[Rfam]
RNA: Fluoride riboswitch aptamer (crcB RNA motif)
Nucleotides: 066
Stems, first nucleotide, its partner, number of pairs: 010026004016057006038047003
Number, partner (000 for none) and nucleotide at each position: 001000u002000g003000a004000a005000g006000c007000u008000u009000a010026g011025g012024a013023g014000a015000u016057g017056g018055u019054a020053u021052u022000c023013c024012u025011c026010c027000c028000a029000u030000u031000a032000c033000a034000a035000a036000c037000c038047g039046c040045c041000c042000u043000u044000a045040g046039g047038c048000u049000g050000a051000u052021g053020a054019u055018a056017c057016c058000u059000a060000c061000g062000u063000c064000u065000u066000c